[Rfam]
RNA sequence: CCAAUGAGAAGAGGCGCGUUGUUCAGGCAGCCGGCAGAAGGAGUCGCCACUCCACAGAUCGCCGGUCAGGGGAACAACGCCGAGAUUGCCACCGGUGGCUUGACGGUGGUGGUCGGCUGCGAAGGCUGAAUCCUUCGGGCUGUCACCUGUUGGGUGGAGUGCUUCCUGAUGA
Numbered sequence: 001c002c003a004a005u006g007a008g009a010a011g012a013g014g015c016g017c018g019u020u021g022u023u024c025a026g027g028c029a030g031c032c033g034g035c036a037g038a039a040g041g042a043g044u045c046g047c048c049a050c051u052c053c054a055c056a057g058a059u060c061g062c063c064g065g066u067c068a069g070g071g072g073a074a075c076a077a078c079g080c081c082g083a084g085a086u087u088g089c090c091a092c093c094g095g096u097g098g099c100u101u102g103a104c105g106g107u108g109g110u111g112g113u114c115g116g117c118u119g120c121g122a123a124g125g126c127u128g129a130a131u132c133c134u135u136c137g138g139g140c141u142g143u144c145a146c147c148u149g150u151u152g153g154g155u156g157g158a159g160u161g162c163u164u165c166c167u168g169a170u171g172a
Base pairs, nucleotide, nucleotide: 006167008165009164010163011162016080017079018078019077020076021075022074023073024072030066031065032064033063034062035061037059084114085113086112087111088110089109090108091107092106093105094104115141116140117139118138120137121136122135123134124133125132143157144156145155146154147153148152

Overview:
This 172-nucleotide RNA sequence from Oceanimonas doudoroffii belongs to the Rfam family "Lysine riboswitch aptamer". Lineage of the source: Bacteria > Pseudomonadati > Aeromonadales > Aeromonadaceae > Oceanimonas. Pairs were carried over by alignment from the consensus structure, which is taken from published work.